[Rfam]
RNA sequence: ACAUACGUAGUGGAAAUUAAUGGGAUGGGAUCCGAAGCCCCAUUGAGGGAUAAUACAGGCUCUCCCAUCCAACUCCUAUUCCGAAACGUCCUAGUCGUGCAGAGUGGUAACAUGUCACCACAUAUCCAAAAGGGGUACACGGGCUUGACCCAACCCCUUGGGCGGAUGGUGGCAUAUGGCGAACCAGGAGGGG
Numbered sequence: 001a002c003a004u005a006c007g008u009a010g011u012g013g014a015a016a017u018u019a020a021u022g023g024g025a026u027g028g029g030a031u032c033c034g035a036a037g038c039c040c041c042a043u044u045g046a047g048g049g050a051u052a053a054u055a056c057a058g059g060c061u062c063u064c065c066c067a068u069c070c071a072a073c074u075c076c077u078a079u080u081c082c083g084a085a086a087c088g089u090c091c092u093a094g095u096c097g098u099g100c101a102g103a104g105u106g107g108u109a110a111c112a113u114g115u116c117a118c119c120a121c122a123u124a125u126c127c128a129a130a131a132g133g134g135g136u137a138c139a140c141g142g143g144c145u146u147g148a149c150c151c152a153a154c155c156c157c158u159u160g161g162g163c164g165g166a167u168g169g170u171g172g173c174a175u176a177u178g179g180c181g182a183a184c185c186a187g188g189a190g191g192g193g
Stems, first nucleotide, its partner, number of pairs: 017099001023070008032059002074193004079189002082187001086098003090107002111178005116171004124167004133151004155162002
drz-agam-2-2 ribozyme: a 193-nucleotide RNA from Anopheles gambiae. A search with the family's covariance model found it, with a score of 137 bits. The family has 5 seed sequences and 486 matches in Rfam 15.1.